Rfam assigns this 76-nucleotide RNA sequence from Methylobacterium sp. WL8 to the family "Makes More Granules Regulator RNA (mmgR)". Rfam's curators write: SuhB later renamed mmgR (makes more granules regulator) was a putative non-coding RNA found multiple times in the Agrobacterium tumefaciens genome and related alpha-proteobacteria. Other non-coding RNAs uncovered in the same analysis include: speF, ybhL, metA, and serC.Several studies inSinorhizobium meliloti showed that suhB element is indeed a non-coding RNA:firstly it was detected on Northern blot and called Sm8RNA, secondly in an RNAseq study referred to as SmelC689.The mutant phenotype's (strain lacking the small RNA) cytoplasm contains higher content of polyhydroxybutyrate (PBH)storage granules than wild type strain. The sRNA is required to limit the PBH intracellular accumulation when the nitrogen-fixing Sinorhizobium meliloti is under condition of surplus carbon in relation to nitrogen. Pairs were carried over by alignment from the consensus structure. The source organism's lineage runs through Bacteria, Alphaproteobacteria, Hyphomicrobiales, Methylobacteriaceae and Methylobacterium. Gene Ontology terms of the family: response to nitrogen compound, DNA-templated transcription, termination and protein binding. For this family Rfam cites "Evidence for a second class of S-adenosylmethionine riboswitches and other regulatory RNA motifs in alpha-proteobacteria" (Corbino et al., Genome Biol, 2005).
RNA sequence: UCCUGCUGCCCUUCUUGGGCGUUUCCUCCCUAGACUUCGGGCCGCUCCUUCGGGAGUGGCCUUUUUUCUUGGUGCG
Numbered sequence: 001u002c003c004u005g006c007u008g009c010c011c012u013u014c015u016u017g018g019g020c021g022u023u024u025c026c027u028c029c030c031u032a033g034a035c036u037u038c039g040g041g042c043c044g045c046u047c048c049u050u051c052g053g054g055a056g057u058g059g060c061c062u063u064u065u066u067u068c069u070u071g072g073u074g075c076g
Stems, first nucleotide, its partner, number of pairs: 008020004040061009